Group II catalytic intron D1-D4-3: a 169-nucleotide RNA from Geosporobacter ferrireducens. Rfam describes the family as follows. Group II introns are found in rRNA, tRNA and mRNA of organelles in fungi, plants and protists, and also in mRNA in bacteria.
[Rfam]
RNA sequence: UUUUCGGCGACGAAAGGGUCUGAAGGAAGCUGAUGGCGGUUGUUGGAACGAAACGUAAGUGAACCAGUGGUGGCAUAUGUAGCGGAUAACCCUCCAUAUAAUGGGAACGUCCUAAAAUUAGCUGAGCUACAUGUGUUAUGAUGGUCGUUUUAACAGCAGGCGGAGCAAC
Numbered sequence: 001u002u003u004u005c006g007g008c009g010a011c012g013a014a015a016g017g018g019u020c021u022g023a024a025g026g027a028a029g030c031u032g033a034u035g036g037c038g039g040u041u042g043u044u045g046g047a048a049c050g051a052a053a054c055g056u057a058a059g060u061g062a063a064c065c066a067g068u069g070g071u072g073g074c075a076u077a078u079g080u081a082g083c084g085g086a087u088a089a090c091c092c093u094c095c096a097u098a099u100a101a102u103g104g105g106a107a108c109g110u111c112c113u114a115a116a117a118u119u120a121g122c123u124g125a126g127c128u129a130c131a132u133g134u135g136u137u138a139u140g141a142u143g144g145u146c147g148u149u150u151u152a153a154c155a156g157c158a159g160g161c162g163g164a165g166c167a168a169c
Stems, first nucleotide, its partner, number of pairs: 001016006029169001031167002036161002041155011064144003068140001073136003077132007084112004090105003
Dot-bracket structure: ((((((....))))))............(.((...((...(((((((((((............(((.(....(((.(((((((((((..(((..........)))...)))).............))))))).)))...).))))))))))))))....))....)).)